[Rfam]
RNA sequence: GUUGUCAUAGCUCAACGGUUAGAGCGGAACACUGUUAAUGUUUAGAUAAAGGUUCGAUUCCUUUUGACGACU
Numbered sequence: 001g002u003u004g005u006c007a008u009a010g011c012u013c014a015a016c017g018g019u020u021a022g023a024g025c026g027g028a029a030c031a032c033u034g035u036u037a038a039u040g041u042u043u044a045g046a047u048a049a050a051g052g053u054u055c056g057a058u059u060c061c062u063u064u065u066g067a068c069g070a071c072u
Stems, first nucleotide, its partner, number of pairs: 001071007010025004027043005048064005

The family of this 72-nucleotide sequence from Saitozyma podzolica is "tRNA". It is annotated as a transfer RNA. Lineage of the source: Eukaryota > Fungi > Agaricomycotina > Tremellomycetes > Saitozyma.